RNA sequence: UAAAUUUUUAUGAUGAGACCAUAGUUCAGCUGAUUAUCAUUGAUGUUUACUUAUAGCAAUGUCUUUCGCUCCUAUCUGACAAAAUUUA
Dot-bracket structure: ...(((((........................................................................)))))...
RNA: Small nucleolar RNA snR60/Z15/Z230/Z193/J17
Organism: Microctonus hyperodae